A member of the RNA family "Small nucleolar RNA SNORA74" from Larimichthys crocea, 201 nucleotides long. Pairs were carried over by alignment from the consensus structure, which was predicted with PFOLD. For this family Rfam cites "The family of box ACA small nucleolar RNAs is defined by an evolutionarily conserved secondary structure and ubiquitous sequence elements essential for RNA accumulation" (Ganot et al., Genes Dev, 1997). NCBI's taxonomy places the organism under Eukaryota, Deuterostomia, Vertebrata, Acanthomorphata, Larimichthys. Gene Ontology terms of the family: nucleolus and RNA processing. Rfam describes the family as follows. U19 belongs to the H/ACA class of snoRNAs. snoRNAs bind a number of proteins (including dyskerin, Gar1p and Nop10p in the case of the H/ACA class) to form snoRNP complexes. This class are thought to guide the sites of modification of uridines to pseudouridines by forming direct base pairing interactions with substrate RNAs. Targets may include ribosomal and spliceosomal RNAs but the exact functions of many snoRNAs, including U19, are not confirmed.

RNA sequence: CCCAGCUCUAAGUCAGCUGGCCAGACGUUGCAUGUCUGGCUCAGUGUUACAGUGCUGGCAGAUGAAGUCUCUGUACCUGGUCUCGGCUGUGCGGGCUCUGUUUUAGAGUCUGCUGCUCCUGAGCUGCUGCAGAGCGCGGCCCAACGAGAGUGGCCUGUCCUGAGCCAACAGCAGGGCAGGCCUAGUGCAGGGCUGCACACU
Numbered sequence: 001c002c003c004a005g006c007u008c009u010a011a012g013u014c015a016g017c018u019g020g021c022c023a024g025a026c027g028u029u030g031c032a033u034g035u036c037u038g039g040c041u042c043a044g045u046g047u048u049a050c051a052g053u054g055c056u057g058g059c060a061g062a063u064g065a066a067g068u069c070u071c072u073g074u075a076c077c078u079g080g081u082c083u084c085g086g087c088u089g090u091g092c093g094g095g096c097u098c099u100g101u102u103u104u105a106g107a108g109u110c111u112g113c114u115g116c117u118c119c120u121g122a123g124c125u126g127c128u129g130c131a132g133a134g135c136g137c138g139g140c141c142c143a144a145c146g147a148g149a150g151u152g153g154c155c156u157g158u159c160c161u162g163a164g165c166c167a168a169c170a171g172c173a174g175g176g177c178a179g180g181c182c183u184a185g186u187g188c189a190g191g192g193c194u195g196c197a198c199a200c201u
Base pairs, nucleotide, nucleotide: 002058003057004056005055006054008052009051012050013049016045017044018043019042020041022038023037024036025035026034069134070133071132072131073130074129075128080125082123083122084121085118086117088115089114093110094109096108097107098106099105136196137195138194139193140192141191142190152182153181154180156178157177158176159175160174161173162172